[Rfam]
RNA sequence: GGCGGGUGGUGUGCGCAGUCUCCGUCUGCGUUCAGUGCCGUCUCCAGCUUGUGUCUUACAGGCUGGGUGUCUGUGCUCACACCAGACCUGCAGCCACAGAGCCGCCGGAGAUCAUAGUACUGGCCUAGUGACGUCUCUGAGACUCUCCACCACUGGCCAGCCUCCAUUCUCUCCCACAAAA
Numbered sequence: 001g002g003c004g005g006g007u008g009g010u011g012u013g014c015g016c017a018g019u020c021u022c023c024g025u026c027u028g029c030g031u032u033c034a035g036u037g038c039c040g041u042c043u044c045c046a047g048c049u050u051g052u053g054u055c056u057u058a059c060a061g062g063c064u065g066g067g068u069g070u071c072u073g074u075g076c077u078c079a080c081a082c083c084a085g086a087c088c089u090g091c092a093g094c095c096a097c098a099g100a101g102c103c104g105c106c107g108g109a110g111a112u113c114a115u116a117g118u119a120c121u122g123g124c125c126u127a128g129u130g131a132c133g134u135c136u137c138u139g140a141g142a143c144u145c146u147c148c149a150c151c152a153c154u155g156g157c158c159a160g161c162c163u164c165c166a167u168u169c170u171c172u173c174c175c176a177c178a179a180a181a
Stems, first nucleotide, its partner, number of pairs: 013091003030082002035077001036075003040071001043067005050060003107174005120160006127154004133143004
RNA: Small nucleolar RNA SNORA23